[Rfam]
RNA sequence: ACCACGGGGUUGACCGCGAACGCCCCGAAAGGCUGUCGCCCAAGUUUCGCAUCCUUUUGUUUUAACCUGAAAGGAUGCCAAUG
Number, nucleotide and partner (000 for none) at each position: 001a000002c000003c000004a000005c027006g026007g025008g024009g023010u022011u000012g000013a000014c000015c000016g000017c000018g000019a000020a000021c000022g010023c009024c008025c007026c006027g005028a000029a000030a000031g000032g000033c000034u000035g000036u000037c000038g000039c000040c000041c000042a000043a000044g000045u000046u000047u000048c000049g078050c077051a076052u075053c074054c073055u000056u000057u000058u000059g000060u000061u000062u000063u000064a000065a000066c000067c000068u000069g000070a000071a000072a000073g054074g053075a052076u051077g050078c049079c000080a000081a000082u000083g000
chrB-a RNA: an 83-nucleotide RNA from Thalassococcus sp. S3. The base pairs follow the family's consensus structure, which is taken from published work. The match comes from Rfam's covariance-model search (55 bits).